A member of the RNA family "mir-929 microRNA precursor family" from Papilio machaon, 72 nucleotides long. Gene Ontology terms of the family: RISC complex and miRNA-mediated post-transcriptional gene silencing. The family's consensus secondary structure was predicted with RNAalifold. The match comes from Rfam's covariance-model search (80 bits). The family has 18 seed sequences and 147 matches in Rfam 15.1.

RNA sequence: GGAUGUCAAAUUGACUCUAGUAGGGAGUCCGUUUAAUGCGCGACUCCCUAAUCGAGUCAGGUUGACUUCCUC
Numbered sequence: 001g002g003a004u005g006u007c008a009a010a011u012u013g014a015c016u017c018u019a020g021u022a023g024g025g026a027g028u029c030c031g032u033u034u035a036a037u038g039c040g041c042g043a044c045u046c047c048c049u050a051a052u053c054g055a056g057u058c059a060g061g062u063u064g065a066c067u068u069c070c071u072c
Base pairs, nucleotide, nucleotide: 011060012059013058014057015056016055017054021050022049023048024047025046026045027044028043029042